[Rfam]
RNA sequence: UAAUAGCCGUGGUUAAAACGGCAUCCUUUUAUUUUGUUACUUGAUUUGUUUUGUAAGCUUCAAGUGACAAAAUAAAAGAUAUAGUGGAAGACACGAAUUUCU
Numbered sequence: 001u002a003a004u005a006g007c008c009g010u011g012g013u014u015a016a017a018a019c020g021g022c023a024u025c026c027u028u029u030u031a032u033u034u035u036g037u038u039a040c041u042u043g044a045u046u047u048g049u050u051u052u053g054u055a056a057g058c059u060u061c062a063a064g065u066g067a068c069a070a071a072a073u074a075a076a077a078g079a080u081a082u083a084g085u086g087g088a089a090g091a092c093a094c095g096a097a098u099u100u101c102u
Base pairs, nucleotide, nucleotide: 009094010093011092013090014089018085019084023080024079025078029075030074031073032072033071034070035069036068037067038066039065040064041063042062043061044060
A member of the RNA family "Flavo-1 RNA" from Flavobacterium urocaniciphilum, 102 nucleotides long. By type it is a small RNA. It scores 52 bits against the family's covariance model.